[Rfam]
RNA sequence: UGUAAGCGUUUAGCGUGCGCUGGCACAAAGCGGAGCGCACGCAGUCCUGUUUUUCAAAGCGGAUAACGCCGAUCAUCUCGUCCUCUUCGAAGCGCUCCAGGGCAUCGCUGAGACCGGAUUUCACGCCGCGCGGCAGGUCGCACUGGGUCACGUCGCCGUUAACGAUAACCGUCACGUUUUCCCCCAGGCGGGUC
Numbered sequence: 001u002g003u004a005a006g007c008g009u010u011u012a013g014c015g016u017g018c019g020c021u022g023g024c025a026c027a028a029a030g031c032g033g034a035g036c037g038c039a040c041g042c043a044g045u046c047c048u049g050u051u052u053u054u055c056a057a058a059g060c061g062g063a064u065a066a067c068g069c070c071g072a073u074c075a076u077c078u079c080g081u082c083c084u085c086u087u088c089g090a091a092g093c094g095c096u097c098c099a100g101g102g103c104a105u106c107g108c109u110g111a112g113a114c115c116g117g118a119u120u121u122c123a124c125g126c127c128g129c130g131c132g133g134c135a136g137g138u139c140g141c142a143c144u145g146g147g148u149c150a151c152g153u154c155g156c157c158g159u160u161a162a163c164g165a166u167a168a169c170c171g172u173c174a175c176g177u178u179u180u181c182c183c184c185c186a187g188g189c190g191g192g193u194c
Base pairs, nucleotide, nucleotide: 002054004052005051006050007049008048014041015040016039017038018037019036061078062077063076064075066073083112084111085110088107093102095100113193114192115191117189119188120187121186125134126133127132137166138165139164140163144158145157146156171183174180
Annotation
This 194-nucleotide sequence belongs to the Rfam family "Yersinia sRNA 251". By type it is an antisense RNA. For this family Rfam cites "Transcriptomic profiling of Yersinia pseudotuberculosis reveals reprogramming of the Crp regulon by temperature and uncovers Crp as a master regulator of small RNAs" (Nuss et al., PLoS Genet, 2015). It scores 175 bits against the family's covariance model.